[Rfam]
RNA: mir-2788 microRNA precursor family
Organism: Diabrotica virgifera
RNA sequence: CAAAAUCAAUGAGCAAGUUUGGGGUUUCUUAGCGGCAUUUGCCAGUAUUUGAAUUGCAAUGCCCUUGGAAAUCCCAAAUAUGUUCACAGUCUCG
Number, nucleotide and partner (000 for none) at each position: 001c000002a000003a000004a000005a000006u000007c000008a090009a000010u088011g087012a000013g085014c082015a081016a000017g000018u000019u000020u076021g075022g074023g073024g072025u071026u070027u069028c068029u000030u000031a065032g064033c000034g063035g062036c061037a060038u059039u000040u058041g057042c056043c000044a000045g000046u000047a000048u000049u000050u000051g000052a000053a000054u000055u000056g042057c041058a040059a038060u037061g036062c035063c034064c032065u031066u000067g000068g028069a027070a026071a025072u024073c023074c022075c021076a020077a000078a000079u000080a000081u015082g014083u000084u000085c013086a000087c011088a010089g000090u008091c000092u000093c000094g000